This 134-nucleotide RNA from Tetrahymena malaccensis belongs to the Rfam family "Tetrahymena snoRNA TtnuHACA14".
RNA sequence: CAAGCGAAGACUACUCAUAGUUUGUUCAGACUAGUUCUGUAUAAGCAAAACAGUUUUCGCAAAAUCAGCCUGAGUUUCUUACUACCCAUUUAGCACUUAUAUUGCUGAAAGGUAAUUUCCGAAUUCAGACAUUA
Numbered sequence: 001c002a003a004g005c006g007a008a009g010a011c012u013a014c015u016c017a018u019a020g021u022u023u024g025u026u027c028a029g030a031c032u033a034g035u036u037c038u039g040u041a042u043a044a045g046c047a048a049a050a051c052a053g054u055u056u057u058c059g060c061a062a063a064a065u066c067a068g069c070c071u072g073a074g075u076u077u078c079u080u081a082c083u084a085c086c087c088a089u090u091u092a093g094c095a096c097u098u099a100u101a102u103u104g105c106u107g108a109a110a111g112g113u114a115a116u117u118u119c120c121g122a123a124u125u126c127a128g129a130c131a132u133u134a
Stems, first nucleotide, its partner, number of pairs: 004060009020046006027039004070128008086112002089109002092106004
Pairs were carried over by alignment from the consensus structure, which was predicted with mfold. Rfam's curators put it in the seed alignment. Taxonomically the source falls in Tetrahymena malaccensis (Eukaryota, Sar, Oligohymenophorea, Tetrahymenina). It is annotated as an H/ACA-box small nucleolar RNA.